[Rfam]
RNA sequence: CCGCACUAGACGGGGUGGUAGCGGUGCCCUGUAACCUGCAAGCCGCUAAGCAGGGUCGAAGGCCGCUCUGAGGAUUUCUCCCCUGGAGGCCUGGCCCCAAUAAGUGGUAAUGACAGCCGGGUCUCGCGCAAUGGAGCUCUGUGAACCCCGUCAGGUCCGGGAGGAAGCAGCGGUAAGCAGAUGUUUCCAUGUGCCGCGAGGGAGCCUGGCUCGAGCUAACUGUUGGGGUAACGCUCCGGGGGAGGAAUUCGAAGACGGUGUGCGG
Numbered sequence: 001c002c003g004c005a006c007u008a009g010a011c012g013g014g015g016u017g018g019u020a021g022c023g024g025u026g027c028c029c030u031g032u033a034a035c036c037u038g039c040a041a042g043c044c045g046c047u048a049a050g051c052a053g054g055g056u057c058g059a060a061g062g063c064c065g066c067u068c069u070g071a072g073g074a075u076u077u078c079u080c081c082c083c084u085g086g087a088g089g090c091c092u093g094g095c096c097c098c099a100a101u102a103a104g105u106g107g108u109a110a111u112g113a114c115a116g117c118c119g120g121g122u123c124u125c126g127c128g129c130a131a132u133g134g135a136g137c138u139c140u141g142u143g144a145a146c147c148c149c150g151u152c153a154g155g156u157c158c159g160g161g162a163g164g165a166a167g168c169a170g171c172g173g174u175a176a177g178c179a180g181a182u183g184u185u186u187c188c189a190u191g192u193g194c195c196g197c198g199a200g201g202g203a204g205c206c207u208g209g210c211u212c213g214a215g216c217u218a219a220c221u222g223u224u225g226g227g228g229u230a231a232c233g234c235u236c237c238g239g240g241g242g243a244g245g246a247a248u249u250c251g252a253a254g255a256c257g258g259u260g261u262g263c264g265g
Stems, first nucleotide, its partner, number of pairs: 001265006009057003012030006019023001035054005063258003067254001069252001072250005079243010092230002096227006104220002106217003115211008123200006129191002132189005138181005148173004156165003
A member of the RNA family "Bacterial large signal recognition particle RNA" from Halarsenatibacter silvermanii, 265 nucleotides long. By type it is a non-coding RNA gene. Pairs were carried over by alignment from the consensus structure, which is taken from published work. Rfam's curators write: The signal recognition particle (SRP) is a universally conserved ribonucleoprotein involved in the co-translational targeting of proteins to membranes.